[Rfam]
RNA: Vault RNA
Organism: Scyliorhinus torazame
RNA sequence: ACGUCAGCUUUAGCUCACUGGCUACUUCACAACAUCAACUUAAUUGUAAUUUCGAACCUGUCUCACCGUGGGCGCUUUCUGGCAUUUUU
Numbered sequence: 001a002c003g004u005c006a007g008c009u010u011u012a013g014c015u016c017a018c019u020g021g022c023u024a025c026u027u028c029a030c031a032a033c034a035u036c037a038a039c040u041u042a043a044u045u046g047u048a049a050u051u052u053c054g055a056a057c058c059u060g061u062c063u064c065a066c067c068g069u070g071g072g073c074g075c076u077u078u079c080u081g082g083c084a085u086u087u088u089u
Stems, first nucleotide, its partner, number of pairs: 003083005013073004019068003026056003